[Rfam]
Shown here is an 85-nucleotide RNA sequence from Sporolactobacillus shoreae, a member of the family "BsrC". Rfam 15.1 lists 572 matches to the family in 553 species. A search with the family's covariance model found it, with a score of 64 bits. The family's consensus secondary structure was predicted with CMfinder. It is annotated as a small RNA. Rfam's curators write: The 301 nucleotide sequence from Kouji Nakamura has been trimmed to a highly conserved ~85 nucleotide long core to form this family. A reference for the family is Saito et al. (2008), "Novel small RNA-encoding genes in the intergenic regions of Bacillus subtilis", Gene.

RNA sequence: CGGCGCCGAAACAAUGAAAGCCCUACCUCUCUUCCAUCCUUACGGUUCCUCUGACCGAGCCAGUAUGAUUCAGCGCAAAAACACC
Numbered sequence: 001c002g003g004c005g006c007c008g009a010a011a012c013a014a015u016g017a018a019a020g021c022c023c024u025a026c027c028u029c030u031c032u033u034c035c036a037u038c039c040u041u042a043c044g045g046u047u048c049c050u051c052u053g054a055c056c057g058a059g060c061c062a063g064u065a066u067g068a069u070u071c072a073g074c075g076c077a078a079a080a081a082c083a084c085c
Stems, first nucleotide, its partner, number of pairs: 035067002039063002041059001043057005